[Rfam]
RNA sequence: AAUGCCGUCACUUGGUCGGCGAUUUAAUAUUAUCAGAACAUAGGAAAUUGUUAGUAUUAGUUGUGCGACCAGGAGACGGUAUUC
Numbered sequence: 001a002a003u004g005c006c007g008u009c010a011c012u013u014g015g016u017c018g019g020c021g022a023u024u025u026a027a028u029a030u031u032a033u034c035a036g037a038a039c040a041u042a043g044g045a046a047a048u049u050g051u052u053a054g055u056a057u058u059a060g061u062u063g064u065g066c067g068a069c070c071a072g073g074a075g076a077c078g079g080u081a082u083u084c
Stems, first nucleotide, its partner, number of pairs: 001083007009075001011073008019064004024060009034050002
RNA: mir-230 microRNA precursor family
Organism: Caenorhabditis elegans